Source information
A member of the RNA family "Mason-Pfizer monkey virus packaging signal" from Nannospalax galili, 275 nucleotides long. The family's RNA type in Rfam is cis-regulatory element. The match comes from Rfam's covariance-model search (148 bits). About the family: This family represents a group of sequences that are related to the Mason-Pfizer monkey virus (MPMV) packaging signal. The packaging signal is located in the 5' UTR and is required for specific RNA encapsidation. The base pairs follow the family's consensus structure, which was predicted with PFOLD.
RNA sequence: UGGCGGCAACGUGGGGCUGGAUACGGAGGAUCCAGUGAGGGAAGAAGACGUCCCCAAAGGAACGCGUUCCACAACAAUUUUCACUCUGGACACGCUGCGGGAACCUGCCUCGGCCACCACCAGAAGUAAGUACAGACGUCUGAUUAUGGGACAAGAAAUAACCAGGCACGAACUUUAUGUUAGGCAAUUGCAGGAUGCCUUAAGGACACGAGGAGUAAAGGUUAAAAUAGAGGAUCUAUUAAGAUUCUUUGAAUUUAUUAAGGAAACCUGUCCUU
Numbered sequence: 001u002g003g004c005g006g007c008a009a010c011g012u013g014g015g016g017c018u019g020g021a022u023a024c025g026g027a028g029g030a031u032c033c034a035g036u037g038a039g040g041g042a043a044g045a046a047g048a049c050g051u052c053c054c055c056a057a058a059g060g061a062a063c064g065c066g067u068u069c070c071a072c073a074a075c076a077a078u079u080u081u082c083a084c085u086c087u088g089g090a091c092a093c094g095c096u097g098c099g100g101g102a103a104c105c106u107g108c109c110u111c112g113g114c115c116a117c118c119a120c121c122a123g124a125a126g127u128a129a130g131u132a133c134a135g136a137c138g139u140c141u142g143a144u145u146a147u148g149g150g151a152c153a154a155g156a157a158a159u160a161a162c163c164a165g166g167c168a169c170g171a172a173c174u175u176u177a178u179g180u181u182a183g184g185c186a187a188u189u190g191c192a193g194g195a196u197g198c199c200u201u202a203a204g205g206a207c208a209c210g211a212g213g214a215g216u217a218a219a220g221g222u223u224a225a226a227a228u229a230g231a232g233g234a235u236c237u238a239u240u241a242a243g244a245u246u247c248u249u250u251g252a253a254u255u256u257a258u259u260a261a262g263g264a265a266a267c268c269u270g271u272c273c274u275u
Base pairs, nucleotide, nucleotide: 007028011024012023013022036045083127084126085125086123087122094115096112097111099109100108135152139150140149141148142147159202160201161200163197164196209251210250211249212248213247214246215245216244219237220236221235222234223233260275261274262273263272264271